[Rfam]
RNA sequence: UUUUUAUUCUGUUAGGUGAGGCUCCUGUAUAGAGAAAUGCUGCUGCCCAAAAAUGUCGAGAGACGCCAAUGGGUCAACAGGAAAGAUCGGAAAAGGUCUUUUUUAAUGUAGCUGGUAUUUGUACCUAUGCUAUACAGUGCUAAAGCUCAACGAGGGAACUGUGG
Numbered sequence: 001u002u003u004u005u006a007u008u009c010u011g012u013u014a015g016g017u018g019a020g021g022c023u024c025c026u027g028u029a030u031a032g033a034g035a036a037a038u039g040c041u042g043c044u045g046c047c048c049a050a051a052a053a054u055g056u057c058g059a060g061a062g063a064c065g066c067c068a069a070u071g072g073g074u075c076a077a078c079a080g081g082a083a084a085g086a087u088c089g090g091a092a093a094a095g096g097u098c099u100u101u102u103u104u105a106a107u108g109u110a111g112c113u114g115g116u117a118u119u120u121g122u123a124c125c126u127a128u129g130c131u132a133u134a135c136a137g138u139g140c141u142a143a144a145g146c147u148c149a150a151c152g153a154g155g156g157a158a159c160u161g162u163g164g
Base pairs, nucleotide, nucleotide: 007158008157009156010155011151012150013094015147016146017145020141021140022139025137026136027135028134029133030132031131032130039112040111041110042109043108045074046073047072048071049070054065055064056063057062080103081102082101083100086097087096088095114125115124116123
M-box riboswitch aptamer (ykoK leader): a 164-nucleotide RNA sequence from Bacillus sp. MUM 116. A search with the family's covariance model found it, with a score of 139 bits. For this family Rfam cites "Insights into metalloregulation by M-box riboswitch RNAs via structural analysis of manganese-bound complexes" (Ramesh et al., J Mol Biol, 2011).